This 94-nucleotide sequence from Kocuria coralli belongs to the Rfam family "SAM riboswitch aptamer (S box leader)".
[Rfam]
RNA sequence: UAUCUAUCCAGAGCGGCCGAGAGACCUGGCUUGUCGACGCCGCAGCAACCAUCCUGUUCUUCAGGAACGGUGCUCCCGCCAGGACCGAUGGAGC
Numbered sequence: 001u002a003u004c005u006a007u008c009c010a011g012a013g014c015g016g017c018c019g020a021g022a023g024a025c026c027u028g029g030c031u032u033g034u035c036g037a038c039g040c041c042g043c044a045g046c047a048a049c050c051a052u053c054c055u056g057u058u059c060u061u062c063a064g065g066a067a068c069g070g071u072g073c074u075c076c077c078g079c080c081a082g083g084a085c086c087g088a089u090g091g092a093g094c
Stems, first nucleotide, its partner, number of pairs: 003092006013043005021032003026082004044074004049070002052066004078086001
Description:
The match comes from Rfam's covariance-model search (55 bits). The organism belongs to Kocuria, within Bacteria.